[Rfam]
RNA: Purine riboswitch aptamer
Organism: Lederbergia galactosidilytica
RNA sequence: UGAACUUAACAAGAAAGGCCUCAUAUAUAAUGGGGAUAUGGCCCAUAAGUUUCUACCUGAUCACCGUAAAUGAUCAGACUAUGAGGAAGUGGAACUUGGGG
Numbered sequence: 001u002g003a004a005c006u007u008a009a010c011a012a013g014a015a016a017g018g019c020c021u022c023a024u025a026u027a028u029a030a031u032g033g034g035g036a037u038a039u040g041g042c043c044c045a046u047a048a049g050u051u052u053c054u055a056c057c058u059g060a061u062c063a064c065c066g067u068a069a070a071u072g073a074u075c076a077g078a079c080u081a082u083g084a085g086g087a088a089g090u091g092g093a094a095c096u097u098g099g100g101g
Stems, first nucleotide, its partner, number of pairs: 019086007028048001030046005057077007